[Rfam]
RNA sequence: AUUGACAAGUAGAGGCACCCGCUUCUCGCCUGUUCGACACAUCAAGUAGUUGCCAGGUUAUUUAACAGUCGUUAUUCUGAUUAAACAGGAUAAGUGUGGGUGCAUUGGUACCGACACUUUUUUUAUUUG
Numbered sequence: 001a002u003u004g005a006c007a008a009g010u011a012g013a014g015g016c017a018c019c020c021g022c023u024u025c026u027c028g029c030c031u032g033u034u035c036g037a038c039a040c041a042u043c044a045a046g047u048a049g050u051u052g053c054c055a056g057g058u059u060a061u062u063u064a065a066c067a068g069u070c071g072u073u074a075u076u077c078u079g080a081u082u083a084a085a086c087a088g089g090a091u092a093a094g095u096g097u098g099g100g101u102g103c104a105u106u107g108g109u110a111c112c113g114a115c116a117c118u119u120u121u122u123u124u125a126u127u128u129g
Stems, first nucleotide, its partner, number of pairs: 011026006028058003036051003039047002095116003099112005
Rfam assigns this 129-nucleotide RNA sequence from Amphibacillus xylanus to the family "Ribosomal protein L20 leader". The source organism's lineage runs through Bacteria, Bacilli, Bacillaceae, Amphibacillus and Amphibacillus xylanus. It is annotated as a cis-regulatory leader. A reference for the family is Zengel and Lindahl (1994), "Diverse mechanisms for regulating ribosomal protein synthesis in Escherichia coli", Prog Nucleic Acid Res Mol Biol. The match comes from Rfam's covariance-model search (75 bits). Rfam links the family to the GO term regulation of gene expression. Rfam describes the family as follows. This family is a putative r-protein leader autoregulatory structure found in B. subtilis and other low-GC Gram-positive bacteria. It is located in the 5' untranslated regions of mRNAs encoding initiation factor 3 followed by ribosomal proteins L35 and L20 (infC-rpmI-rplT). A Rho-independent transcription terminator structure that is probably involved in regulation is included at the 3' end.